This 573-nucleotide part of an RNA from Samia ricini belongs to the Rfam family "Eukaryotic large subunit ribosomal RNA". Gene Ontology terms of the family: structural constituent of ribosome and ribosome.

RNA sequence: UAGAAUAAUGUAGGUAAGGGAAGUCGGCAAAUUGGAUCCGUAACUUCGGAAUAAGGAUUGGCUCUGAGGACCGGGGCGCGUCGGGUUUGGACGGGAAGCGGAUGCGGCCGGUGCCGGGCCUGGUCGAUGCCGGCGCGUAAGUCGUCCCCCGAAAGGGGGGCGACCCGCGCGGGCGGAAUCCGGACCCGCGUUCCGGCCUUCCGCGGAUCUUCCUAGCCGUAAGGCCGCGUCGGUUCGCGUCUCGUGCGCGACCGGCGCGGUUCUGUACGACCGCCGUUCAACGGUCAGCUCAGAACUGGCACGGACAAGGGGAAUCCGACUGUCUAAUUAAAACAAAGCAUUGCGAUGGCCCUCGCGGGUGUUGACGCAAUGUGAUUUCUGCCCAGUGCUCUGAAUGUCAACGUGAAGAAAUUCAAGCAAGCGCGGGUAAACGGUGGGAGUAACUAUGACUCUCUUAAGGUAGCCAAAUGCCUCGUCAUCUAAUUAGUGACGCGCAUGAAUGGAUUAACGAGAUUCCCACUGUCCCUAUCUACUAUCUAGCGAAACCACAGCCAAGGGAACGGGCUUGGGAGA
Numbered sequence: 001u002a003g004a005a006u007a008a009u010g011u012a013g014g015u016a017a018g019g020g021a022a023g024u025c026g027g028c029a030a031a032u033u034g035g036a037u038c039c040g041u042a043a044c045u046u047c048g049g050a051a052u053a054a055g056g057a058u059u060g061g062c063u064c065u066g067a068g069g070a071c072c073g074g075g076g077c078g079c080g081u082c083g084g085g086u087u088u089g090g091a092c093g094g095g096a097a098g099c100g101g102a103u104g105c106g107g108c109c110g111g112u113g114c115c116g117g118g119c120c121u122g123g124u125c126g127a128u129g130c131c132g133g134c135g136c137g138u139a140a141g142u143c144g145u146c147c148c149c150c151g152a153a154a155g156g157g158g159g160g161c162g163a164c165c166c167g168c169g170c171g172g173g174c175g176g177a178a179u180c181c182g183g184a185c186c187c188g189c190g191u192u193c194c195g196g197c198c199u200u201c202c203g204c205g206g207a208u209c210u211u212c213c214u215a216g217c218c219g220u221a222a223g224g225c226c227g228c229g230u231c232g233g234u235u236c237g238c239g240u241c242u243c244g245u246g247c248g249c250g251a252c253c254g255g256c257g258c259g260g261u262u263c264u265g266u267a268c269g270a271c272c273g274c275c276g277u278u279c280a281a282c283g284g285u286c287a288g289c290u291c292a293g294a295a296c297u298g299g300c301a302c303g304g305a306c307a308a309g310g311g312g313a314a315u316c317c318g319a320c321u322g323u324c325u326a327a328u329u330a331a332a333a334c335a336a337a338g339c340a341u342u343g344c345g346a347u348g349g350c351c352c353u354c355g356c357g358g359g360u361g362u363u364g365a366c367g368c369a370a371u372g373u374g375a376u377u378u379c380u381g382c383c384c385a386g387u388g389c390u391c392u393g394a395a396u397g398u399c400a401a402c403g404u405g406a407a408g409a410a411a412u413u414c415a416a417g418c419a420a421g422c423g424c425g426g427g428u429a430a431a432c433g434g435u436g437g438g439a440g441u442a443a444c445u446a447u448g449a450c451u452c453u454c455u456u457a458a459g460g461u462a463g464c465c466a467a468a469u470g471c472c473u474c475g476u477c478a479u480c481u482a483a484u485u486a487g488u489g490a491c492g493c494g495c496a497u498g499a500a501u502g503g504a505u506u507a508a509c510g511a512g513a514u515u516c517c518c519a520c521u522g523u524c525c526c527u528a529u530c531u532a533c534u535a536u537c538u539a540g541c542g543a544a545a546c547c548a549c550a551g552c553c554a555a556g557g558g559a560a561c562g563g564g565c566u567u568g569g570g571a572g573a
Stems, first nucleotide, its partner, number of pairs: 001539004010533007018525003035059005044049001060297002063294006069286005075275004080271004085217003089213003098204004106198006113191002115188004120183004128175004298302001310518007317510002321335003338373008349360004377504003381435003386432002388428004393424001396423003404415004436454006455459001475491005552569005